[Rfam]
RNA sequence: UUACUCCAUCCGUCCCAUAAUAUAAGAGCGUUUUUAUACUAGUGUAGUGUAAAAAACACUCUUAUAUUAUGGGACGGAUGGAGUAU
Numbered sequence: 001u002u003a004c005u006c007c008a009u010c011c012g013u014c015c016c017a018u019a020a021u022a023u024a025a026g027a028g029c030g031u032u033u034u035u036a037u038a039c040u041a042g043u044g045u046a047g048u049g050u051a052a053a054a055a056a057c058a059c060u061c062u063u064a065u066a067u068u069a070u071g072g073g074a075c076g077g078a079u080g081g082a083g084u085a086u
Stems, first nucleotide, its partner, number of pairs: 003084003007080005013074005019068010030057005035051006
MIR1120/MIR1122 microRNA precursor family: an 86-nucleotide RNA sequence from Triticum aestivum. The match comes from Rfam's covariance-model search (90 bits). The literature on the family includes a 2007 paper in Genome Biol by Yao et al., "Cloning and characterization of microRNAs from wheat (Triticum aestivum L.)".